[Rfam]
RNA: Nuclear RNase P
Organism: Baryphthengus martii
RNA sequence: UCUGGGGGAAGCUCACCGCCGAGGCCACGCACGGGGUGCUUACGUCACCCGCCGUCCCGCCUCGGGGAAGGUCUGAGAGAAGGUCCGCCCGCGGCUCUAGCAGGGCCCCGCCAGUCGAUGGUGGGUGAGCCACCAGCAAGGGGGGGCGCCGCGUAACUGAACCGGGCCGGCCUGGGCAGGAGAAGCCGAGCAGGUUGCGUCGGAGUCGGGUAACGCCGCUCCGCGGAAUCCCGGCGGAUGCUCGUGGCCCCGCGGUGCUUUGAGACAGACUCACGGCCGGCGAUCGCUGAGUCCAAUGGGUGAGGUGGGGCACCGCCCUACAACCCAAUUCAGACUACUCUCCCCCAGA
Numbered sequence: 001u002c003u004g005g006g007g008g009a010a011g012c013u014c015a016c017c018g019c020c021g022a023g024g025c026c027a028c029g030c031a032c033g034g035g036g037u038g039c040u041u042a043c044g045u046c047a048c049c050c051g052c053c054g055u056c057c058c059g060c061c062u063c064g065g066g067g068a069a070g071g072u073c074u075g076a077g078a079g080a081a082g083g084u085c086c087g088c089c090c091g092c093g094g095c096u097c098u099a100g101c102a103g104g105g106c107c108c109c110g111c112c113a114g115u116c117g118a119u120g121g122u123g124g125g126u127g128a129g130c131c132a133c134c135a136g137c138a139a140g141g142g143g144g145g146g147c148g149c150c151g152c153g154u155a156a157c158u159g160a161a162c163c164g165g166g167c168c169g170g171c172c173u174g175g176g177c178a179g180g181a182g183a184a185g186c187c188g189a190g191c192a193g194g195u196u197g198c199g200u201c202g203g204a205g206u207c208g209g210g211u212a213a214c215g216c217c218g219c220u221c222c223g224c225g226g227a228a229u230c231c232c233g234g235c236g237g238a239u240g241c242u243c244g245u246g247g248c249c250c251c252g253c254g255g256u257g258c259u260u261u262g263a264g265a266c267a268g269a270c271u272c273a274c275g276g277c278c279g280g281c282g283a284u285c286g287c288u289g290a291g292u293c294c295a296a297u298g299g300g301u302g303a304g305g306u307g308g309g310g311c312a313c314c315g316c317c318c319u320a321c322a323a324c325c326c327a328a329u330u331c332a333g334a335c336u337a338c339u340c341u342c343c344c345c346c347a348g349a
Base pairs, nucleotide, nucleotide: 001349002348003347004346007343008342009341012304013303014302015301016300017299020064021063022062023061024060034050035049036048037047038046039044073333074332075331076330077329083278085276086275093107094106095105096104097103108124109123110122111121112120113119125274126273127272128271129270131268145259146258147257148256149255150254151253152252153251305321306320307319308318309317310316311315